[Rfam]
RNA sequence: ACACAAAGCCGGGGGCAAAAACGCCACGUCCUGUGGCAUUGCCCCCAUGACCAACAUCGUGUUGG
Number, nucleotide and partner (000 for none) at each position: 001a000002c000003a000004c000005a000006a000007a000008g000009c000010c000011g046012g045013g044014g043015g042016c041017a000018a000019a000020a000021a000022c000023g037024c036025c035026a034027c033028g000029u000030c000031c000032u000033g027034u026035g025036g024037c023038a000039u000040u000041g016042c015043c014044c013045c012046c011047a000048u000049g000050a000051c065052c064053a063054a062055c061056a000057u000058c000059g000060u000061g055062u054063u053064g052065g051